[Rfam]
RNA sequence: ACACAAGUGGUUCGUAACCCUCCCACUAUAAAAAACUAGGCGUCU
Numbered sequence: 001a002c003a004c005a006a007g008u009g010g011u012u013c014g015u016a017a018c019c020c021u022c023c024c025a026c027u028a029u030a031a032a033a034a035a036c037u038a039g040g041c042g043u044c045u
Base pairs, nucleotide, nucleotide: 006027007026008025009024010023015038016037

The family of this 45-nucleotide sequence from Vitreoscilla sp. C1 is "PreQ1 (pre queuosine) riboswitch aptamer". This family is a bacterial riboswitch that binds to the metabolite preQ1, an intermediate in the biosynthesis of the modified nucleoside queuosine from GTP. One example of this riboswitch is located in the leader of the Bacillus subtilis ykvJKLM (queCDEF) operon which encodes four genes necessary for queuosine production. PreQ1 binding to the riboswitch aptamer is thought to induce premature transcription termination within the leader to down-regulate expression of these genes. On this family, see Spitale et al., J Biol Chem 2009: "The structural basis for recognition of the PreQ0 metabolite by an unusually small riboswitch aptamer domain". It scores 52 bits against the family's covariance model.